[Rfam]
RNA sequence: CGCGCCGCACAGCAAUGUGAGGCGUGACGUUUCAGAAGUCAGCAGCGGUCAUAGUAGCCUUGGCGGCGGGAUUGCCGUCAGCGCGAAGGAC
Numbered sequence: 001c002g003c004g005c006c007g008c009a010c011a012g013c014a015a016u017g018u019g020a021g022g023c024g025u026g027a028c029g030u031u032u033c034a035g036a037a038g039u040c041a042g043c044a045g046c047g048g049u050c051a052u053a054g055u056a057g058c059c060u061u062g063g064c065g066g067c068g069g070g071a072u073u074g075c076c077g078u079c080a081g082c083g084c085g086a087a088g089g090a091c
Base pairs, nucleotide, nucleotide: 001026002025004023005022006021008019009018010017011016040045048091049090050089057084058083060081061080062079063078064077065076066075
RNA: Group II catalytic intron D1-D4-1